[Rfam]
RNA: TPP riboswitch aptamer (THI element)
RNA sequence: UACGAGCAUGACGGGUGUUCGAUGAUUGCUUCGGCAUGAUUCGUUCUGAGAAAUACCGUUGAACUUGAUCUGGAUAAUACCAGCGAAAGGACAUGCCUCUAUCCACCC
Number, nucleotide and partner (000 for none) at each position: 001u000002a000003c000004g000005a000006g096007c095008a094009u093010g092011a059012c058013g057014g056015g000016u053017g046018u000019u000020c043021g042022a000023u000024g000025a000026u000027u000028g000029c000030u000031u000032c000033g000034g000035c000036a000037u000038g000039a000040u000041u000042c021043g020044u000045u000046c017047u000048g000049a000050g000051a000052a000053a016054u000055a000056c014057c013058g012059u011060u000061g000062a000063a000064c089065u088066u087067g000068a000069u000070c083071u082072g081073g080074a000075u000076a000077a000078u000079a000080c073081c072082a071083g070084c000085g000086a000087a066088a065089g064090g000091a000092c010093a009094u008095g007096c006097c000098u000099c000100u000101a000102u000103c000104c000105a000106c000107c000108c000